[Rfam]
Rfam assigns this 75-nucleotide RNA sequence from Tetranychus urticae to the family "mir-234 microRNA precursor family". Gene Ontology terms of the family: RISC complex and miRNA-mediated post-transcriptional gene silencing. The literature on the family includes a 2003 paper in Genes Dev by Lim et al., "The microRNAs of Caenorhabditis elegans".
RNA sequence: ACAAAGUGUAUUCCUGGGCUAAUAACAUGUUAAACUUUUUGAAAUAUUCUGUUAUUGCUUGAGAAUACACGUUGU
Numbered sequence: 001a002c003a004a005a006g007u008g009u010a011u012u013c014c015u016g017g018g019c020u021a022a023u024a025a026c027a028u029g030u031u032a033a034a035c036u037u038u039u040u041g042a043a044a045u046a047u048u049c050u051g052u053u054a055u056u057g058c059u060u061g062a063g064a065a066u067a068c069a070c071g072u073u074g075u
Stems, first nucleotide, its partner, number of pairs: 008068006017059003021056007